[Rfam]
RNA sequence: UUUUAUAAAAAGCAAAAUAAUUGAAAAAUUAUUACGCAAAGAGAUAAGUCUAAGGAAGUAAUUCUAUGAUUGUUAUUUCUGCCUCA
Numbered sequence: 001u002u003u004u005a006u007a008a009a010a011a012g013c014a015a016a017a018u019a020a021u022u023g024a025a026a027a028a029u030u031a032u033u034a035c036g037c038a039a040a041g042a043g044a045u046a047a048g049u050c051u052a053a054g055g056a057a058g059u060a061a062u063u064c065u066a067u068g069a070u071u072g073u074u075a076u077u078u079c080u081g082c083c084u085c086a
Base pairs, nucleotide, nucleotide: 012037013036017032018031019030020029021028022027040080041079042078043077045075046074047073048070049069050068055064056063057062
This 86-nucleotide sequence from Halanaerobium salsuginis belongs to the Rfam family "c-di-GMP-I riboswitch aptamer". The match comes from Rfam's covariance-model search (57 bits). Rfam's curators write: GEMM was predicted in a large-scale screen for bacterial structured RNA regulatory elements. Genes associated with GEMM are involved in a diverse array of functions, including chemotaxis regulation, signal transduction, secretion and chitin.